[Rfam]
RNA sequence: ACAACAAGAAUAAAAACCAGGCAAGACCCCAUAACAAAAACAAGAUUCAGCUCCACACCUAACAAAAACAAAACGUGCGAGUGUAGCAAACUGAUUUUUUUGGAGAAUAGGAAGCACCGCUGGCGAACGUAAUGUUCGAUUGGAAACCGAGAAGAAUAAAAGUUGCCUGAGCAACCGACCGGUACCGAUGCCAAGCUUGGCCAAAGCAGCUUCCCGAGCAUCCAAAGCAAUCCGCUUGCUUUAGGCAACCCGGGAUGGGUUUAAACGGGGUGACACUGUCGCCCAGCCCAAAAAAACAAGAAACAGCUCAAAUAACAACAACAAAAAACCAUUAGGGGGAGUGAAUACUCCCCUUGAGCUUUCCCGCAAUACUCCCAGCAGUAUCUU
Numbered sequence: 001a002c003a004a005c006a007a008g009a010a011u012a013a014a015a016a017c018c019a020g021g022c023a024a025g026a027c028c029c030c031a032u033a034a035c036a037a038a039a040a041c042a043a044g045a046u047u048c049a050g051c052u053c054c055a056c057a058c059c060u061a062a063c064a065a066a067a068a069c070a071a072a073a074c075g076u077g078c079g080a081g082u083g084u085a086g087c088a089a090a091c092u093g094a095u096u097u098u099u100u101u102g103g104a105g106a107a108u109a110g111g112a113a114g115c116a117c118c119g120c121u122g123g124c125g126a127a128c129g130u131a132a133u134g135u136u137c138g139a140u141u142g143g144a145a146a147c148c149g150a151g152a153a154g155a156a157u158a159a160a161a162g163u164u165g166c167c168u169g170a171g172c173a174a175c176c177g178a179c180c181g182g183u184a185c186c187g188a189u190g191c192c193a194a195g196c197u198u199g200g201c202c203a204a205a206g207c208a209g210c211u212u213c214c215c216g217a218g219c220a221u222c223c224a225a226a227g228c229a230a231u232c233c234g235c236u237u238g239c240u241u242u243a244g245g246c247a248a249c250c251c252g253g254g255a256u257g258g259g260u261u262u263a264a265a266c267g268g269g270g271u272g273a274c275a276c277u278g279u280c281g282c283c284c285a286g287c288c289c290a291a292a293a294a295a296a297c298a299a300g301a302a303a304c305a306g307c308u309c310a311a312a313u314a315a316c317a318a319c320a321a322c323a324a325a326a327a328a329c330c331a332u333u334a335g336g337g338g339g340a341g342u343g344a345a346u347a348c349u350c351c352c353c354u355u356g357a358g359c360u361u362u363c364c365c366g367c368a369a370u371a372c373u374c375c376c377a378g379c380a381g382u383a384u385c386u387u
Base pairs, nucleotide, nucleotide: 048083049082051081052080053079098227099226100225101224102223114219115218139189140188141187142186143185162175163174164173165172166171245262247261248260249259250258277368278367279366281364335354336353337352338351339350340349341348342347